[Rfam]
RNA sequence: CGGCGGUGAAAGACAUGGGUAGUGAGACGUUUGGUUUGGAACUCGUGUCACUAUUCUGUUUUUCGCCUCGUA
Numbered sequence: 001c002g003g004c005g006g007u008g009a010a011a012g013a014c015a016u017g018g019g020u021a022g023u024g025a026g027a028c029g030u031u032u033g034g035u036u037u038g039g040a041a042c043u044c045g046u047g048u049c050a051c052u053a054u055u056c057u058g059u060u061u062u063u064c065g066c067c068u069c070g071u072a
Base pairs, nucleotide, nucleotide: 008064009063010062011061012060013059014058015057017056018055019054021052022051023050024049025048027046028045029044
The family of this 72-nucleotide RNA from Gongylonema pulchrum is "mir-71 microRNA precursor family".
The base pairs follow the family's consensus structure, which was predicted with RNAalifold.
Lineage of the source: Eukaryota > Bilateria > Spiruroidea > Gongylonematidae > Gongylonema.
It scores 62 bits against the family's covariance model.